[Rfam]
RNA: NiCo-AnGGAG riboswitch aptamer
RNA sequence: AAUCUGAACAAGCGGUAAAUUUAUUUACGCAGCUGGGUUACAUGAAAAAUGUAACAGCAGAGCCAGAGCGCACUGUGAGACAG
Number, nucleotide and partner (000 for none) at each position: 001a000002a000003u000004c083005u082006g081007a000008a000009c000010a000011a000012g033013c032014g030015g028016u027017a026018a025019a024020u000021u000022u000023a000024u019025u018026u017027a016028c015029g000030c014031a000032g013033c012034u000035g000036g000037g055038u054039u053040a052041c051042a050043u049044g000045a000046a000047a000048a000049a043050u042051g041052u040053a039054a038055c037056a000057g076058c075059a074060g073061a000062g071063c070064c000065a000066g000067a000068g000069c000070g063071c062072a000073c060074u059075g058076u057077g000078a000079g000080a000081c006082a005083g004